[Rfam]
RNA sequence: AUUCCUUCUAUCGUGUAUCCUCGAUUGAUGCAGCCUUAGAUGCUUU
Numbered sequence: 001a002u003u004c005c006u007u008c009u010a011u012c013g014u015g016u017a018u019c020c021u022c023g024a025u026u027g028a029u030g031c032a033g034c035c036u037u038a039g040a041u042g043c044u045u046u
Base pairs, nucleotide, nucleotide: 010025011024012023013022032044033043034042

Shown here is a 46-nucleotide sequence from Sciadopitys verticillata, a member of the family "Plastid-ycf3 group II-D1 intron". The source organism's lineage runs through Eukaryota, Embryophyta, Pinidae, Sciadopityaceae and Sciadopitys. The base pairs follow the family's consensus structure, which was predicted with LocARNA. A reference for the family is Richter et al. (2023), "Retrograde signaling in plants: A critical review focusing on the GUN pathway and beyond", Plant Commun. Rfam's curators write: Plastid rpl16 is a non-coding RNA (ncRNA) recognised in plastids. It was recognised in and intronic region of a ribosome rpl16 gene.